Rfam assigns this 57-nucleotide RNA sequence from Mobiluncus curtisii to the family "msiK RNA".
RNA sequence: AUAUCCAGCCUUUACAACGGAUCGUCCGGCGCGUACCCGCCGGUGAAGGGAUUAAAU
Numbered sequence: 001a002u003a004u005c006c007a008g009c010c011u012u013u014a015c016a017a018c019g020g021a022u023c024g025u026c027c028g029g030c031g032c033g034u035a036c037c038c039g040c041c042g043g044u045g046a047a048g049g050g051a052u053u054a055a056a057u
Stems, first nucleotide, its partner, number of pairs: 009049006026043006

It scores 54 bits against the family's covariance model.